[Rfam]
RNA sequence: CCGCACACAUCGGGGCGUUAGCGGUGCUCUGUACCCGCAAUCCGCUACAGCGGGGAUGAUGCGGGCAAGGAGGGACGGGCUUUCGGCAAGGUGGUCGCCCACAGAGCGAUGAGAGACCGGUACUGCGCAACGGAGGACUGUGAACCAUGUCAGGCGGGGAACCGAGCAGCAUUAAGCAGAAACCAUCGUGUGCCGCAGAGCUGCCGAUCUUGAGCUUAAAGUGCGAAGAACGGCCGGGCGUUCGCUUUCGAAUUGUCCGCGUGCGG
Numbered sequence: 001c002c003g004c005a006c007a008c009a010u011c012g013g014g015g016c017g018u019u020a021g022c023g024g025u026g027c028u029c030u031g032u033a034c035c036c037g038c039a040a041u042c043c044g045c046u047a048c049a050g051c052g053g054g055g056a057u058g059a060u061g062c063g064g065g066c067a068a069g070g071a072g073g074g075a076c077g078g079g080c081u082u083u084c085g086g087c088a089a090g091g092u093g094g095u096c097g098c099c100c101a102c103a104g105a106g107c108g109a110u111g112a113g114a115g116a117c118c119g120g121u122a123c124u125g126c127g128c129a130a131c132g133g134a135g136g137a138c139u140g141u142g143a144a145c146c147a148u149g150u151c152a153g154g155c156g157g158g159g160a161a162c163c164g165a166g167c168a169g170c171a172u173u174a175a176g177c178a179g180a181a182a183c184c185a186u187c188g189u190g191u192g193c194c195g196c197a198g199a200g201c202u203g204c205c206g207a208u209c210u211u212g213a214g215c216u217u218a219a220a221g222u223g224c225g226a227a228g229a230a231c232g233g234c235c236g237g238g239c240g241u242u243c244g245c246u247u248u249c250g251a252a253u254u255g256u257c258c259g260c261g262u263g264c265g266g
Stems, first nucleotide, its partner, number of pairs: 001266006008058004012030008034054005062259007070249005078242003082238006091231002095226004100221001105216003113211004118206004123198005128190002131188003135184001138179004147172004155164003
RNA: Bacterial large signal recognition particle RNA